[Rfam]
RNA sequence: AGAGACGACCAGACAAUCGCGUCAGCUAUUCGUUGAUGAGGAAAGUCCGGGCUCCAAAGGGUAAGGUGCCAGGUAACCCCUGGGGGGUGAAAGCCCACGGCCAGUGCAACAGAGAGUAUACCGCCAUGUUCUUCGGAAUACGGUAAGGGUGAAAGGGUGCGGUAAGAGCGCACCGCGCUUCUGGUAACAGAAGUGGCAUGGUAAACCCCACCUGGAGCAAGACCAAAUAGAGGAACGUUUGUUUCGACAGACAUGUGCGACCCGUACUGUUCCUGGGUAGGUUGCUUGAGGCAGAUGGUGACGUCUGUCCCAGAUGAAUGAUUGUCCACGACAGAACCCGGCUUAUCGGUCGUCUCUAACU
Numbered sequence: 001a002g003a004g005a006c007g008a009c010c011a012g013a014c015a016a017u018c019g020c021g022u023c024a025g026c027u028a029u030u031c032g033u034u035g036a037u038g039a040g041g042a043a044a045g046u047c048c049g050g051g052c053u054c055c056a057a058a059g060g061g062u063a064a065g066g067u068g069c070c071a072g073g074u075a076a077c078c079c080c081u082g083g084g085g086g087g088u089g090a091a092a093g094c095c096c097a098c099g100g101c102c103a104g105u106g107c108a109a110c111a112g113a114g115a116g117u118a119u120a121c122c123g124c125c126a127u128g129u130u131c132u133u134c135g136g137a138a139u140a141c142g143g144u145a146a147g148g149g150u151g152a153a154a155g156g157g158u159g160c161g162g163u164a165a166g167a168g169c170g171c172a173c174c175g176c177g178c179u180u181c182u183g184g185u186a187a188c189a190g191a192a193g194u195g196g197c198a199u200g201g202u203a204a205a206c207c208c209c210a211c212c213u214g215g216a217g218c219a220a221g222a223c224c225a226a227a228u229a230g231a232g233g234a235a236c237g238u239u240u241g242u243u244u245c246g247a248c249a250g251a252c253a254u255g256u257g258c259g260a261c262c263c264g265u266a267c268u269g270u271u272c273c274u275g276g277g278u279a280g281g282u283u284g285c286u287u288g289a290g291g292c293a294g295a296u297g298g299u300g301a302c303g304u305c306u307g308u309c310c311c312a313g314a315u316g317a318a319u320g321a322u323u324g325u326c327c328a329c330g331a332c333a334g335a336a337c338c339c340g341g342c343u344u345a346u347c348g349g350u351c352g353u354c355u356c357u358a359a360c361u
Stems, first nucleotide, its partner, number of pairs: 001357010011346001012326007020038007043344003047341005052217004059263004064213005069083005084098001085096004099208002104206002106202002121148002123144003127140005156174006175197001176195008221283004231274006255267004290309008
Bacterial RNase P class A: a 361-nucleotide RNA sequence from Methylophaga thiooxydans. From the family's description: Ribonuclease P (RNase P) is a ubiquitous endoribonuclease, found in archaea, bacteria and eukarya as well as chloroplasts and mitochondria. Its best characterised activity is the generation of mature 5'-ends of tRNAs by cleaving the 5'-leader elements of precursor-tRNAs. Cellular RNase Ps are ribonucleoproteins. RNA from bacterial RNase Ps retains its catalytic activity in the absence of the protein subunit, i.e. it is a ribozyme. Isolated eukaryotic and archaeal RNase P RNA has not been shown to retain its catalytic function, but is still essential for the catalytic activity of the holoenzyme. Although the archaeal and eukaryotic holoenzyme s have a much greater protein content than the bacterial ones, the RNA cores from all the three lineages are homologous -- helices corresponding to P1, P2, P3, P4, and P10/11 are common to all cellular RNase P RNAs. Yet, there is considerable sequence variation, particularly among the eukaryotic RNAs. Identified in Yersinia as Ysr151/RnpB. The organism belongs to Methylophaga thiooxydans, within Bacteria. The base pairs follow the family's consensus structure, which is taken from published work.